RNA sequence: CGGAAAUGAUGAAAUAGAGAUAAUUGGAUGUCUCUGUGAAUGGAGUGUGUGUGAUAAAUGGAAUUUCAACCAAGUCAAACUGGGGGUGGGGGGUGGGGAACGUGUGUGUGCGCGCAUGUAUAGAAAAGGCUUUAAACGGGGGCACUGAUAAUGCAGUGCUGAUUCCGGAGUGCAUCUGAGGCAUGUUGUUAAGUUCUCGGGUGCCACUUUACAACAUCGCCAAUGAUUAAAGCCCAAAACAAGCCCACCAAGACAAGCCUAGGCAUCCUAAAUCUCUAACAGGUUCAUUAAUGAAAGUGAUCCUGUGAUCUGAUCUGA
Numbered sequence: 001c002g003g004a005a006a007u008g009a010u011g012a013a014a015u016a017g018a019g020a021u022a023a024u025u026g027g028a029u030g031u032c033u034c035u036g037u038g039a040a041u042g043g044a045g046u047g048u049g050u051g052u053g054a055u056a057a058a059u060g061g062a063a064u065u066u067c068a069a070c071c072a073a074g075u076c077a078a079a080c081u082g083g084g085g086g087u088g089g090g091g092g093g094u095g096g097g098g099a100a101c102g103u104g105u106g107u108g109u110g111c112g113c114g115c116a117u118g119u120a121u122a123g124a125a126a127a128g129g130c131u132u133u134a135a136a137c138g139g140g141g142g143c144a145c146u147g148a149u150a151a152u153g154c155a156g157u158g159c160u161g162a163u164u165c166c167g168g169a170g171u172g173c174a175u176c177u178g179a180g181g182c183a184u185g186u187u188g189u190u191a192a193g194u195u196c197u198c199g200g201g202u203g204c205c206a207c208u209u210u211a212c213a214a215c216a217u218c219g220c221c222a223a224u225g226a227u228u229a230a231a232g233c234c235c236a237a238a239a240c241a242a243g244c245c246c247a248c249c250a251a252g253a254c255a256a257g258c259c260u261a262g263g264c265a266u267c268c269u270a271a272a273u274c275u276c277u278a279a280c281a282g283g284u285u286c287a288u289u290a291a292u293g294a295a296a297g298u299g300a301u302c303c304u305g306u307g308a309u310c311u312g313a314u315c316u317g318a
Base pairs, nucleotide, nucleotide: 001317002316003315004314184216185215186214187213188212189211191209193204194203196201
A member of the RNA family "Small Cajal body-specific RNA 7" from Pygoscelis papua, 318 nucleotides long. A search with the family's covariance model found it, with a score of 175 bits. The family's RNA type in Rfam is small Cajal body RNA.